The family of this 83-nucleotide sequence from Halalkalibacter akibai is "c-di-GMP-I riboswitch aptamer". NCBI's taxonomy places the organism under Bacteria, Bacillati, Bacillota, Halalkalibacter, Halalkalibacter akibai. The match comes from Rfam's covariance-model search (70 bits).
[Rfam]
RNA sequence: ACUCGAUAAUGGCAAACUUAUUGAAAGAUAAGGACGCAAAGCGACGGGCCUAAUGCAAUGUGCGAUGGCAGCCGAGUACCGAA
Number, nucleotide and partner (000 for none) at each position: 001a000002c000003u000004c000005g000006a000007u000008a000009a000010u000011g000012g037013c036014a000015a000016a000017c032018u031019u030020a029021u028022u027023g000024a000025a000026a000027g022028a021029u020030a019031a018032g017033g000034a000035c000036g013037c012038a000039a000040a077041g000042c076043g000044a000045c074046g073047g072048g069049c068050c067051u000052a000053a000054u000055g063056c062057a061058a000059u000060g000061u057062g056063c055064g000065a000066u000067g050068g049069c048070a000071g000072c047073c046074g045075a000076g042077u040078a000079c000080c000081g000082a000083a000